[Rfam]
RNA sequence: GAAUUUUUGAUUAACACUUGCUGAAAAGCAGGUCAUUUGGAAG
Numbered sequence: 001g002a003a004u005u006u007u008u009g010a011u012u013a014a015c016a017c018u019u020g021c022u023g024a025a026a027a028g029c030a031g032g033u034c035a036u037u038u039g040g041a042a043g
Base pairs, nucleotide, nucleotide: 016033017032018031019030020029021028022027
nuoG RNA: a 43-nucleotide RNA sequence from Photorhabdus laumondii. It is one of the family's seed sequences.